[Rfam]
RNA: Small nucleolar RNA SNORD97
Organism: Myotis lucifugus
RNA sequence: UUGCCCGAUGAUUAUAAAAAGACGCGUUAGAGGACUUAAAUGCUGGAAUUCUUCAUCUUCUUUCUUCCUUUUUCUGUACUACUUUUUCUAUCUUUAUAUGUCCAGCGUCCUAUGAGCGAAGAUUAUGAGAUAUGAGGGCAA
Numbered sequence: 001u002u003g004c005c006c007g008a009u010g011a012u013u014a015u016a017a018a019a020a021g022a023c024g025c026g027u028u029a030g031a032g033g034a035c036u037u038a039a040a041u042g043c044u045g046g047a048a049u050u051c052u053u054c055a056u057c058u059u060c061u062u063u064c065u066u067c068c069u070u071u072u073u074c075u076g077u078a079c080u081a082c083u084u085u086u087u088c089u090a091u092c093u094u095u096a097u098a099u100g101u102c103c104a105g106c107g108u109c110c111u112a113u114g115a116g117c118g119a120a121g122a123u124u125a126u127g128a129g130a131u132a133u134g135a136g137g138g139c140a141a
Stems, first nucleotide, its partner, number of pairs: 001141006031052004036047002
Dot-bracket structure: ((((((........................((((.((........)).))))...................................................................................))))))